The record is a 71-nucleotide RNA sequence from Gopherus agassizii, which matches "Small nucleolar RNA SNORD63" in Rfam.
RNA sequence: GUGCUAUGAUGUUACUAUCAACACAUCAUUCUGAAGAGAACUGGUGCGGAGACUUAAUAUAACUGAGCACG
Number, nucleotide and partner (000 for none) at each position: 001g070002u069003g068004c067005u000006a000007u000008g000009a000010u000011g000012u000013u000014a000015c000016u000017a000018u000019c000020a000021a000022c000023a000024c000025a000026u000027c000028a000029u000030u000031c000032u000033g000034a000035a000036g000037a000038g000039a000040a000041c000042u000043g000044g000045u000046g000047c000048g000049g000050a000051g000052a000053c000054u000055u000056a000057a000058u000059a000060u000061a000062a000063c000064u000065g000066a000067g004068c003069a002070c001071g000

Source information
snoRNA U63 is found in both humans and mice. The family has 23 seed sequences and 795 matches in Rfam 15.1. NCBI's taxonomy places the organism under Eukaryota, Gnathostomata, Teleostomi, Durocryptodira, Gopherus.